[Rfam]
RNA sequence: AGAGCCUCGAGAAUAACUGGAUGUUGGAAAAUAAUGGACCGCAUCCGGCUCAGACAGGGGCUCAUAGCGACAUGAGUCCUUUUGAGAGAAAGGAAUCCAUCUUGUCCUUGCUGUUCCUUUCUUAGAUGGCUUCGGAUAUCU
Numbered sequence: 001a002g003a004g005c006c007u008c009g010a011g012a013a014u015a016a017c018u019g020g021a022u023g024u025u026g027g028a029a030a031a032u033a034a035u036g037g038a039c040c041g042c043a044u045c046c047g048g049c050u051c052a053g054a055c056a057g058g059g060g061c062u063c064a065u066a067g068c069g070a071c072a073u074g075a076g077u078c079c080u081u082u083u084g085a086g087a088g089a090a091a092g093g094a095a096u097c098c099a100u101c102u103u104g105u106c107c108u109u110g111c112u113g114u115u116c117c118u119u120u121c122u123u124a125g126a127u128g129g130c131u132u133c134g135g136a137u138a139u140c141u
Base pairs, nucleotide, nucleotide: 003062004061005060006059007058008057015050017048018047019046020045021044022043025041026040027039073134074133075132076131078129081113084109085108086107088106091103092102093101094100

A member of the RNA family "Small nucleolar RNA snoR138" from Elaeis guineensis, 141 nucleotides long. Lineage of the source: Eukaryota > Tracheophyta > commelinids > Arecaceae > Elaeis. The family's consensus secondary structure was predicted with mfold. For this family Rfam cites "Mining small RNA sequencing data: a new approach to identify small nucleolar RNAs in Arabidopsis" (Chen and Wu, Nucleic Acids Res, 2009). Rfam classes the family as an H/ACA-box small nucleolar RNA.